[Rfam]
RNA sequence: UACUUUCAAAAAGCAAAAAGUUGCAAUAUCGGUUUACGACGUUACGUAGAUAUUGCACUAAUUUGCUUUUGAAAGUG
Numbered sequence: 001u002a003c004u005u006u007c008a009a010a011a012a013g014c015a016a017a018a019a020g021u022u023g024c025a026a027u028a029u030c031g032g033u034u035u036a037c038g039a040c041g042u043u044a045c046g047u048a049g050a051u052a053u054u055g056c057a058c059u060a061a062u063u064u065g066c067u068u069u070u071g072a073a074a075g076u077g
Stems, first nucleotide, its partner, number of pairs: 001077011013066005019059003023056008035048004
Rfam assigns this 77-nucleotide RNA sequence from Branchiostoma belcheri to the family "mir-2063 microRNA precursor family".
Gene Ontology terms of the family: RISC complex and miRNA-mediated post-transcriptional gene silencing.
It is one of the family's seed sequences.